The family of this 140-nucleotide sequence from Streptococcus pantholopis is "MarS sRNA". Taxonomically the source falls in Streptococcus (Bacteria, Bacillati, Bacilli, Lactobacillales). It is annotated as a small RNA. It scores 112 bits against the family's covariance model. Rfam links the family to the GO terms mRNA 5'-UTR binding and positive regulation of translation, ncRNA-mediated. Rfam describes the family as follows. Interacts with the 5'UTR of the mga transcript (the multiple virulence gene regulator gene) and was renamed MarS for mag-activating regulatory sRNA. In MarS deletion strains expression of mga and several Mga-activated genes is reduced.

RNA sequence: AUGCGAUGAGCCGUCUGUGGCUUGGCCACAUAUGCGCUAGGGAGGUCAAUAACGCAAGGAGCGGACCUUGGUAAGUUGUGUGAACCUGCUUAUCACAUACGACAGUAUGCCCUUUCCCUAUCUGAUGAUAGGGAUUUUUU
Numbered sequence: 001a002u003g004c005g006a007u008g009a010g011c012c013g014u015c016u017g018u019g020g021c022u023u024g025g026c027c028a029c030a031u032a033u034g035c036g037c038u039a040g041g042g043a044g045g046u047c048a049a050u051a052a053c054g055c056a057a058g059g060a061g062c063g064g065a066c067c068u069u070g071g072u073a074a075g076u077u078g079u080g081u082g083a084a085c086c087u088g089c090u091u092a093u094c095a096c097a098u099a100c101g102a103c104a105g106u107a108u109g110c111c112c113u114u115u116c117c118c119u120a121u122c123u124g125a126u127g128a129u130a131g132g133g134a135u136u137u138u139u140u
Stems, first nucleotide, its partner, number of pairs: 012034003016030006039113004043068004053063003069095008096109004116133007